[Rfam]
RNA: Guanidine-I riboswitch aptamer
RNA sequence: CGAAUGGAUGACUAGGGUUCCGACUAUUUCGAUAGUGUCUGGUCCGAGAGUUAUCGACCUCCUUGAGGUUACACGGCGGGAUAAAAGCCCGGGAGAC
Number, nucleotide and partner (000 for none) at each position: 001c000002g000003a000004a000005u000006g000007g055008a054009u053010g052011a051012c050013u000014a000015g045016g044017g000018u000019u000020c042021c041022g039023a036024c035025u034026a033027u032028u000029u000030c000031g000032a027033u026034a025035g024036u023037g000038u000039c022040u000041g021042g020043u000044c016045c015046g000047a000048g000049a000050g012051u011052u010053a009054u008055c007056g070057a069058c068059c067060u066061c065062c000063u000064u000065g061066a060067g059068g058069u057070u056071a000072c092073a000074c095075g000076g000077c000078g090079g089080g088081a000082u000083a000084a000085a000086a000087g000088c080089c079090c078091g000092g072093g000094a000095g074096a000097c000